[Rfam]
Rfam assigns this 74-nucleotide RNA sequence from Prevotella sp. KH2C16 to the family "tRNA". Lineage of the source: Bacteria > Bacteroidota > Bacteroidia > Prevotellaceae > Prevotella. It is annotated as a transfer RNA. The match comes from Rfam's covariance-model search (67 bits).
RNA sequence: GGUGCGUUAGUUCAGUUGGUUAGAAUGCCUGCCUGUCACGCAGGAGGUCACGAGUCCGAGUCUCGUACGCACCG
Numbered sequence: 001g002g003u004g005c006g007u008u009a010g011u012u013c014a015g016u017u018g019g020u021u022a023g024a025a026u027g028c029c030u031g032c033c034u035g036u037c038a039c040g041c042a043g044g045a046g047g048u049c050a051c052g053a054g055u056c057c058g059a060g061u062c063u064c065g066u067a068c069g070c071a072c073c074g
Stems, first nucleotide, its partner, number of pairs: 001073007010026004028044005050066005